[Rfam]
RNA sequence: AUGUUAUAAAGAAAGGCAGAGGGAUUAGACCCGAUGAAGCCUUAGCAACCCUUCGAUUUAUCGAAGAAGGUGCUGCAUUCUACCACGCCCAACGUGGAAAGAUAACAC
Dot-bracket structure: .((((((.....(((((...(((..[[[[)))......)))))((((.((((((........))))..))))))...(]]]](((((.....)))))..).)))))).
SAM riboswitch aptamer (S box leader): a 108-nucleotide RNA sequence from Flavobacterium sp. A45. Gene Ontology term of the family: regulation of gene expression. NCBI's taxonomy places the organism under Bacteria, Pseudomonadati, Bacteroidota, Flavobacteriaceae, Flavobacterium.